The record is a 75-nucleotide RNA from Flavobacterium pygoscelis, which matches "Flavo-1 RNA" in Rfam.

RNA sequence: ACCUAGCCCUGAUAGUAGCGGCAUCCUUUUAGGAGCGAUAGCGACUAAAAGAUACAGCGAAUAGCAGGAAAUAGC
Numbered sequence: 001a002c003c004u005a006g007c008c009c010u011g012a013u014a015g016u017a018g019c020g021g022c023a024u025c026c027u028u029u030u031a032g033g034a035g036c037g038a039u040a041g042c043g044a045c046u047a048a049a050a051g052a053u054a055c056a057g058c059g060a061a062u063a064g065c066a067g068g069a070a071a072u073a074g075c
Stems, first nucleotide, its partner, number of pairs: 009067003013063002018058002023053003029048004035042002
The family's RNA type in Rfam is small RNA. The organism belongs to Flavobacterium, within Bacteria.